[Rfam]
RNA: mir-9193 microRNA precursor family
Organism: Myotis brandtii
RNA sequence: UGUGGACUGGUGGGGUCCCUCAGCCUGGCCUGCAUCCUUUCCCAAUCCAGGACCCCUCGGGGGAUGUCGGAGAGCUGGUUUCAGCCCGAUCCCCACAGGCCAGGCUGAGGGACCCCACCGGUGCGUG
Numbered sequence: 001u002g003u004g005g006a007c008u009g010g011u012g013g014g015g016u017c018c019c020u021c022a023g024c025c026u027g028g029c030c031u032g033c034a035u036c037c038u039u040u041c042c043c044a045a046u047c048c049a050g051g052a053c054c055c056c057u058c059g060g061g062g063g064a065u066g067u068c069g070g071a072g073a074g075c076u077g078g079u080u081u082c083a084g085c086c087c088g089a090u091c092c093c094c095a096c097a098g099g100c101c102a103g104g105c106u107g108a109g110g111g112a113c114c115c116c117a118c119c120g121g122u123g124c125g126u127g
Stems, first nucleotide, its partner, number of pairs: 003125002006122001008120003012116014027101006